Rfam assigns this 129-nucleotide RNA sequence from Oncorhynchus tshawytscha to the family "Small nucleolar RNA SNORA49". From the family's description: The snoRNA ACA49 has no identified RNA target. NB genomic sequence 1-nt different from published. NCBI's taxonomy places the organism under Eukaryota, Eumetazoa, Gnathostomata, Teleostei, Oncorhynchus. Pairs were carried over by alignment from the consensus structure, which was predicted with RNAalifold. Gene Ontology terms of the family: RNA processing and nucleolus.

RNA sequence: CUUCCCCUCCCUUACUCCAGUCACUCUGUACCCAGUGGGAUGGAAUGGCAUUGACAGGGGAUAGAGCACUGUGGCCGUCUCUCACCUAGGACUAUUCUCCUAUAUGAGGCUUGUGAGAGAGCUGACAAU
Numbered sequence: 001c002u003u004c005c006c007c008u009c010c011c012u013u014a015c016u017c018c019a020g021u022c023a024c025u026c027u028g029u030a031c032c033c034a035g036u037g038g039g040a041u042g043g044a045a046u047g048g049c050a051u052u053g054a055c056a057g058g059g060g061a062u063a064g065a066g067c068a069c070u071g072u073g074g075c076c077g078u079c080u081c082u083c084a085c086c087u088a089g090g091a092c093u094a095u096u097c098u099c100c101u102a103u104a105u106g107a108g109g110c111u112u113g114u115g116a117g118a119g120a121g122c123u124g125a126c127a128a129u
Base pairs, nucleotide, nucleotide: 003061004060005059006058007057008056011053017048018047019046021044022043023041025039026038027037065123066122067121069119070118079108080107081106084103087102088101089100090099